[Rfam]
RNA sequence: CUUUGAAGUAGUGAAUAUUUCAAGGCGGAAGGAG
Numbered sequence: 001c002u003u004u005g006a007a008g009u010a011g012u013g014a015a016u017a018u019u020u021c022a023a024g025g026c027g028g029a030a031g032g033a034g
Base pairs, nucleotide, nucleotide: 001025002024003023004022005021006020007019008018009017010016
The record is a 34-nucleotide sequence, which matches "L31-Firmicutes ribosomal protein leader" in Rfam. For this family Rfam cites "Discovery of 20 novel ribosomal leader candidates in bacteria and archaea" (Eckert and Weinberg, BMC Microbiol, 2020).